The family of this 102-nucleotide RNA sequence from Melghiribacillus thermohalophilus is "Purine riboswitch aptamer".
Riboswitches are metabolite binding domains within certain messenger RNAs that serve as precision sensors for their corresponding targets.
NCBI's taxonomy places the organism under Bacteria, Bacillati, Caryophanales, Bacillaceae, Melghiribacillus.
The base pairs follow the family's consensus structure, which is taken from published work.
RNA sequence: GAAAUCGUACGCGAAUACCCUCAUAUAAUUUUGGGAAUAUGGCCCAAGAGUCUCUACCCGGUUACCGUAAAUAACCGGACUAUGGGGGAGAAGUUGUCUGUA
Number, nucleotide and partner (000 for none) at each position: 001g000002a000003a000004a000005u000006c000007g000008u000009a000010c000011g000012c000013g000014a000015a000016u000017a000018c088019c087020c086021u085022c084023a083024u082025a081026u000027a000028a000029u049030u048031u047032u046033g045034g044035g043036a000037a000038u000039a000040u000041g000042g000043c035044c034045c033046a032047a031048g030049a029050g000051u000052c000053u000054c000055u000056a000057c000058c078059c077060g076061g075062u074063u073064a072065c000066c000067g000068u000069a000070a000071a000072u064073a063074a062075c061076c060077g059078g058079a000080c000081u025082a024083u023084g022085g021086g020087g019088g018089a000090g000091a000092a000093g000094u000095u000096g000097u000098c000099u000100g000101u000102a000